Notes:
Rfam assigns this 72-nucleotide RNA from Sparus aurata to the family "Small nucleolar RNA SNORD103/SNORD85". The organism belongs to Sparus, within Eukaryota.
[Rfam]
RNA sequence: UAUGGCUGUGAUGACACACUUGCCCUCACUGAGAUAAGGCUUGAUUGAUAUAAUUUGUACUCCUGAGCCACA
Numbered sequence: 001u002a003u004g005g006c007u008g009u010g011a012u013g014a015c016a017c018a019c020u021u022g023c024c025c026u027c028a029c030u031g032a033g034a035u036a037a038g039g040c041u042u043g044a045u046u047g048a049u050a051u052a053a054u055u056u057g058u059a060c061u062c063c064u065g066a067g068c069c070a071c072a
Stems, first nucleotide, its partner, number of pairs: 001072001003070004
The literature on the family includes a 2001 paper in EMBO J by Huttenhofer et al., "RNomics: an experimental approach that identifies 201 candidates for novel, small, non-messenger RNAs in mouse".
The family's RNA type in Rfam is C/D-box small nucleolar RNA.